RNA: Small nucleolar RNA SNORA55
Organism: Python bivittatus
RNA sequence: GCAUCUGAAUCUUUCAUGCUCCUUGCUGUGCAGUGCAGGCCUGGGGACAAAUGGUGCUACAGAAAUGCAGAGCAAAUCCAGGCAAGUUCAUAUUUUCUUAUAAAGAAACUUGUCUCUACAGCUUUGCAACAUUU
Numbered sequence: 001g002c003a004u005c006u007g008a009a010u011c012u013u014u015c016a017u018g019c020u021c022c023u024u025g026c027u028g029u030g031c032a033g034u035g036c037a038g039g040c041c042u043g044g045g046g047a048c049a050a051a052u053g054g055u056g057c058u059a060c061a062g063a064a065a066u067g068c069a070g071a072g073c074a075a076a077u078c079c080a081g082g083c084a085a086g087u088u089c090a091u092a093u094u095u096u097c098u099u100a101u102a103a104a105g106a107a108a109c110u111u112g113u114c115u116c117u118a119c120a121g122c123u124u125u126g127c128a129a130c131a132u133u134u
Stems, first nucleotide, its partner, number of pairs: 001057005013047003017043002021039002067127006080115008094106003